Source information
A member of the RNA family "ssNA-helicase RNA", 49 nucleotides long. Rfam's curators put it in the seed alignment. Rfam classes the family as a small RNA.

[Rfam]
Nucleotides: 049
Stems, first nucleotide, its partner, number of pairs: 001031011
Number, partner (000 for none) and nucleotide at each position: 001031u002030u003029c004028c005027c006026u007025a008024a009023a010022g011021g012000c013000u014000a015000g016000u017000a018000u019000u020000a021011c022010c023009u024008u025007u026006a027005g028004g029003g030002a031001a032000c033000u034000u035000c036000u037000g038000u039000a040000a041000c042000a043000u044000g045000u046000a047000a048000c049000a